[Rfam]
RNA sequence: GGUAUUCCUUAUCUGUCUAAUGGUUUGUCAGGAGCCUGUCUUCGUGUGUUUUCUUCAUGUCGGGAAAAAACACGAAGACAGGCCCAAUCAGGGUUUAGUUGCCUAGUGGUGUUGCAAU
Numbered sequence: 001g002g003u004a005u006u007c008c009u010u011a012u013c014u015g016u017c018u019a020a021u022g023g024u025u026u027g028u029c030a031g032g033a034g035c036c037u038g039u040c041u042u043c044g045u046g047u048g049u050u051u052u053c054u055u056c057a058u059g060u061c062g063g064g065a066a067a068a069a070a071c072a073c074g075a076a077g078a079c080a081g082g083c084c085c086a087a088u089c090a091g092g093g094u095u096u097a098g099u100u101g102c103c104u105a106g107u108g109g110u111g112u113u114g115c116a117a118u
Base pairs, nucleotide, nucleotide: 001103002102003101004100022088032085034083035082036081037080038079039078040077043074044073045072046071047070049068050067051066052065053064054063055062
The family of this 118-nucleotide RNA sequence from Hafnia alvei is "tp2".
Rfam classes the family as a small RNA.
A reference for the family is Hershberg et al. (2003), "A survey of small RNA-encoding genes in Escherichia coli", Nucleic Acids Res.